mir-71 microRNA precursor family: a 71-nucleotide RNA sequence from Branchiostoma floridae.
For this family Rfam cites "MicroRNAs of Bombyx mori identified by Solexa sequencing" (Liu et al., BMC Genomics, 2010).
Its family is annotated with miRNA-mediated post-transcriptional gene silencing and RISC complex in the Gene Ontology.
It is one of the family's seed sequences.
Taxonomically the source falls in Branchiostoma (Eukaryota, Chordata, Leptocardii, Branchiostomatidae).
RNA sequence: ACAUUGUGAAAGACAUGGGUAGUGAGAUUUGUAUCAUGAAUUUAUCCCAUUUCCCUGUCUUUCAACAAGGU
Numbered sequence: 001a002c003a004u005u006g007u008g009a010a011a012g013a014c015a016u017g018g019g020u021a022g023u024g025a026g027a028u029u030u031g032u033a034u035c036a037u038g039a040a041u042u043u044a045u046c047c048c049a050u051u052u053c054c055c056u057g058u059c060u061u062u063c064a065a066c067a068a069g070g071u
Base pairs, nucleotide, nucleotide: 008063009062010061011060012059013058014057015056017055018054019053021051022050023049024048026046027045028044